[Rfam]
RNA sequence: AUACUUACCUGGACGGGGUCAAUUGGCGAUCAAGAAGGUCCAUGGCCUAGGUCAGUGACAUCCAUUGCACUCAGGAUGGGUGCUGGCUUAAGGUCUCCCCAAGAGGGAGAGCCUACGUCAAAAUUUGUGGUAGAGGGGGCUGCGCAAGUCGCGGCCCCUG
Numbered sequence: 001a002u003a004c005u006u007a008c009c010u011g012g013a014c015g016g017g018g019u020c021a022a023u024u025g026g027c028g029a030u031c032a033a034g035a036a037g038g039u040c041c042a043u044g045g046c047c048u049a050g051g052u053c054a055g056u057g058a059c060a061u062c063c064a065u066u067g068c069a070c071u072c073a074g075g076a077u078g079g080g081u082g083c084u085g086g087c088u089u090a091a092g093g094u095c096u097c098c099c100c101a102a103g104a105g106g107g108a109g110a111g112c113c114u115a116c117g118u119c120a121a122a123a124u125u126u127g128u129g130g131u132a133g134a135g136g137g138g139g140c141u142g143c144g145c146a147a148g149u150c151g152c153g154g155c156c157c158c159u160g
Base pairs, nucleotide, nucleotide: 012119013118014117015116016048017047018046019045020044021043023042025040026039027038049089050088051087053086055083056082057081059079062075063074091114092113093112094110095109096108098106099105135159136158137157138156139155141153142152143151144150
RNA: U1 spliceosomal RNA